[Rfam]
RNA: Pseudomonas sRNA P26
Organism: Halopseudomonas laoshanensis
RNA sequence: GACCUUGCGUCGACAGUCUGAUUUAAUCGGUCAGAUUGAUGGCUGGUGGCCAAAGUGCCACCGGCCU
Numbered sequence: 001g002a003c004c005u006u007g008c009g010u011c012g013a014c015a016g017u018c019u020g021a022u023u024u025a026a027u028c029g030g031u032c033a034g035a036u037u038g039a040u041g042g043c044u045g046g047u048g049g050c051c052a053a054a055g056u057g058c059c060a061c062c063g064g065c066c067u
Base pairs, nucleotide, nucleotide: 014038015037016036017035018034022030023029041066042065043064044063045062046061047060048059049058050057